[Rfam]
RNA: permuted transfer-messenger RNA
Organism: Phenylobacterium zucineum
RNA sequence: GGGGAUAAACGCGCGCGAAAUAAGCGGACUGGACCCGGGUGCGAUUCCCGGCGGCUCCACCAAGAUCUUCCUCCGGGUUAUCGCCGGAAAAGUGCGGGGCCGAUCAGCAUCGACAGACGUGUAAAGGCGUUGCUUUCUCCCGGCCUGACCCACCGUUUCGGGUCAUUAAACUAAAUGCGAACGAUAACUUCGCUGAGGAAGUCCGCCUGGCCGCGUAA
Number, nucleotide and partner (000 for none) at each position: 001g140002g139003g138004g137005a136006u000007a000008a000009a000010c000011g000012c000013g130014c129015g128016c127017g000018a000019a000020a000021u000022a000023a000024g000025c119026g118027g000028a000029c116030u115031g114032g000033a000034c000035c051036c050037g049038g048039g047040u000041g000042c000043g000044a000045u000046u000047c039048c038049c037050g036051g035052c102053g101054g100055c099056u098057c097058c096059a000060c000061c000062a000063a000064g000065a000066u000067c000068u000069u000070c000071c000072u000073c000074c000075g000076g000077g000078u000079u000080a000081u000082c000083g000084c000085c000086g000087g000088a000089a000090a000091a000092g000093u000094g000095c000096g058097g057098g056099g055100c054101c053102g052103a000104u000105c000106a000107g000108c000109a000110u000111c000112g000113a000114c031115a030116g029117a000118c026119g025120u000121g000122u000123a000124a000125a000126g000127g016128c015129g014130u013131u000132g000133c000134u000135u000136u005137c004138u003139c002140c001141c155142g154143g153144c000145c000146u000147g000148a000149c000150c000151c000152a000153c143154c142155g141156u000157u000158u000159c000160g000161g000162g000163u000164c000165a000166u000167u000168a000169a000170a000171c000172u000173a000174a000175a000176u000177g000178c000179g000180a000181a000182c000183g000184a000185u000186a000187a000188c000189u000190u000191c000192g000193c000194u000195g000196a000197g000198g000199a000200a000201g000202u000203c000204c000205g000206c000207c000208u000209g000210g000211c000212c000213g000214c000215g000216u000217a000218a000